[Rfam]
RNA sequence: UGAGUCGGCCAGGCGGCCGCGUGGGUCGGCUUCGGCCGCGUCCACGAGGAACGUCCGGGCUCCACAGGGAACGGCGGUGGGUAACACCCACCCGGGGCGACCCGCGGGAAAGCGCCACAGAAAACAAACCGCCGCGCAAGCGGCAAGGGUGAAACGGCGGUGUAAGAGACCACCGCGCUUCGGGCGACCGAAGCGGCAGGGCAAGCCCCGCCGGGAGCAAGGCCAGACAGCGCGCGAUGAGGCUUCCCGUCUAGCGCGCGGGUGGGCCGCUUGAGCCGCGCGGCAACGCGCGGCCUAGAGGGAUGGCCGCCGCCGGAUCCGCAGCGGAUCCGGAACAGAACCCGGCGUAUCGGCUGACUCAUUCG
Number, nucleotide and partner (000 for none) at each position: 001u361002g360003a359004g358005u357006c356007g355008g354009c353010c352011a350012g311013g310014c309015g308016g307017c306018c305019g000020c046021g045022u044023g043024g042025g041026u040027c000028g000029g000030c000031u000032u000033c000034g000035g000036c000037c000038g000039c000040g026041u025042c024043c023044a022045c021046g020047a000048g000049g000050a000051a348052c347053g346054u000055c345056c344057g343058g342059g341060c217061u216062c215063c214064a000065c000066a000067g248068g247069g246070a245071a000072c213073g212074g211075c210076g209077g091078u090079g089080g088081g087082u000083a000084a000085c000086a000087c081088c080089c079090a078091c077092c106093c104094g103095g102096g101097g000098c000099g000100a000101c096102c095103c094104g093105c000106g092107g208108g207109a000110a000111a000112g206113c205114g202115c201116c200117a000118c000119a000120g000121a000122a000123a000124a000125c000126a000127a000128a000129c148130c147131g144132c143133c142134g141135c140136g000137c000138a000139a000140g135141c134142g133143g132144c131145a000146a000147g130148g129149g000150u000151g000152a000153a000154a000155c000156g174157g173158c000159g171160g170161u169162g000163u000164a000165a000166g000167a000168g000169a161170c160171c159172a000173c157174c156175g197176c195177g194178c193179u192180u191181c190182g189183g188184g000185c000186g000187a000188c183189c182190g181191a180192a179193g178194c177195g176196g000197c175198a000199g000200g116201g115202c114203a000204a000205g113206c112207c108208c107209c076210g075211c074212c073213g072214g063215g062216a061217g060218c000219a000220a000221g268222g267223c266224c265225a000226g000227a000228c000229a000230g259231c258232g257233c256234g255235c254236g000237a000238u000239g000240a252241g251242g250243c249244u000245u070246c069247c068248c067249g243250u242251c241252u240253a000254g235255c234256g233257c232258g231259c230260g000261g000262g000263u000264g000265g224266g223267c222268c221269g000270c000271u000272u000273g000274a000275g294276c293277c292278g291279c290280g289281c288282g287283g000284c000285a000286a000287c282288g281289c280290g279291c278292g277293g276294c275295c000296u000297a000298g000299a000300g000301g000302g000303a000304u000305g018306g017307c016308c015309g014310c013311c012312g000313c000314c000315g000316g000317a000318u000319c000320c000321g000322c000323a000324g000325c000326g000327g000328a000329u000330c000331c000332g000333g000334a000335a000336c000337a000338g000339a000340a000341c059342c058343c057344g056345g055346c053347g052348u051349a000350u011351c000352g010353g009354c008355u007356g006357a005358c004359u003360c002361a001362u000363u000364c000365g000
RNA: Bacterial RNase P class A